The family of this 107-nucleotide sequence from Glycine max is "Plant small nucleolar RNA R71". The family's consensus secondary structure was predicted with PFOLD. The match comes from Rfam's covariance-model search (42 bits). A reference for the family is Brown et al. (2003), "Plant snoRNAs: functional evolution and new modes of gene expression", Trends Plant Sci. Rfam 15.1 lists 278,378 matches to the family in 216 species. Its family is annotated with RNA processing and nucleolus in the Gene Ontology.
RNA sequence: AUCUGGUGGUGAGGGCAACUGGCACAUAGUUUUUUAAAUCUCUCCCAGUAUUCACAUAUGCUCUCUCCACUGAGUUGCCUAAUGCCUGAAUUAUCCUUUCUUAUGGU
Numbered sequence: 001a002u003c004u005g006g007u008g009g010u011g012a013g014g015g016c017a018a019c020u021g022g023c024a025c026a027u028a029g030u031u032u033u034u035u036a037a038a039u040c041u042c043u044c045c046c047a048g049u050a051u052u053c054a055c056a057u058a059u060g061c062u063c064u065c066u067c068c069a070c071u072g073a074g075u076u077g078c079c080u081a082a083u084g085c086c087u088g089a090a091u092u093a094u095c096c097u098u099u100c101u102u103a104u105g106g107u
Stems, first nucleotide, its partner, number of pairs: 001107001003105001005102002057074001060071001